A member of the RNA family "Lysine riboswitch aptamer" from Oceanobacillus halophilus, 178 nucleotides long. Riboswitches are metabolite binding domains within certain messenger RNAs that serve as precision sensors for their corresponding targets.
RNA sequence: CGGUGAGGUAGAGGUGCAAACAAGAUUAGUAACUAGCAGGAGAAUGACAACGAUGAUUGUUAGCGAAAGGAUUGUUUGCCGAAGCGUAAUAAGGGUCAAACUUAUUACUGCUGGUAUGCUUUUGAACAAGAGGUGUACUGUCAUGCAGGAAAUAGGUGCAUGGAGAACUACUGAUCGA
Dot-bracket structure: ......(((((....((((((((.........(((((((.................)))))))........))))))))...(((((((((((.......))))))).))))(((((((((((.....))))))))))).(((((((.........)))))))....)))))......